Rfam assigns this 118-nucleotide RNA sequence from Croceicoccus ponticola to the family "Glycine riboswitch aptamer".
[Rfam]
RNA sequence: UAGCGACACUCUGGAAAGCGUGCCUGGCCGUAAUCGCGGCGGCACCACCGAAGGGGUAACUUCGCACCUUUGACGGCGCGGGGGAAAGCUCUCAGGUUUCCGUGACAGAGGGGGCCGG
Numbered sequence: 001u002a003g004c005g006a007c008a009c010u011c012u013g014g015a016a017a018g019c020g021u022g023c024c025u026g027g028c029c030g031u032a033a034u035c036g037c038g039g040c041g042g043c044a045c046c047a048c049c050g051a052a053g054g055g056g057u058a059a060c061u062u063c064g065c066a067c068c069u070u071u072g073a074c075g076g077c078g079c080g081g082g083g084g085a086a087a088g089c090u091c092u093c094a095g096g097u098u099u100c101c102g103u104g105a106c107a108g109a110g111g112g113g114g115c116c117g118g
Base pairs, nucleotide, nucleotide: 007112009110010109011108012107013106020045021044022043023042047097048096049095050093051092054091055090056089060084061083062082063081
Gene Ontology term of the family: glycine biosynthetic process.